[Rfam]
RNA: Plant small nucleolar RNA U3
Organism: Manihot esculenta
RNA sequence: ACGACCUUACUUGAACAGGAUCUGUUCUAUAGGAUCGUACCUCUGUGUCCUUUAGCACGAAGGAGACAGGAACCACAGUCUGGAAGAUGAAGCAUGGCCGUACGAUCAGAGCGUGAUUAACGGCUAAGGAUCCUUUGAGGUCCGUGAGCUGUAGAGGAUCGUUCUCAGCCACACGUGGCUGGGGCGGUCGCACGGUUGCCUGACAGACU
Numbered sequence: 001a002c003g004a005c006c007u008u009a010c011u012u013g014a015a016c017a018g019g020a021u022c023u024g025u026u027c028u029a030u031a032g033g034a035u036c037g038u039a040c041c042u043c044u045g046u047g048u049c050c051u052u053u054a055g056c057a058c059g060a061a062g063g064a065g066a067c068a069g070g071a072a073c074c075a076c077a078g079u080c081u082g083g084a085a086g087a088u089g090a091a092g093c094a095u096g097g098c099c100g101u102a103c104g105a106u107c108a109g110a111g112c113g114u115g116a117u118u119a120a121c122g123g124c125u126a127a128g129g130a131u132c133c134u135u136u137g138a139g140g141u142c143c144g145u146g147a148g149c150u151g152u153a154g155a156g157g158a159u160c161g162u163u164c165u166c167a168g169c170c171a172c173a174c175g176u177g178g179c180u181g182g183g184g185c186g187g188u189c190g191c192a193c194g195g196u197u198g199c200c201u202g203a204c205a206g207a208c209u
Stems, first nucleotide, its partner, number of pairs: 001038002003035001005033003013027006043069004048064006078208005097196005103190005110163004120152006127145001128143005165182007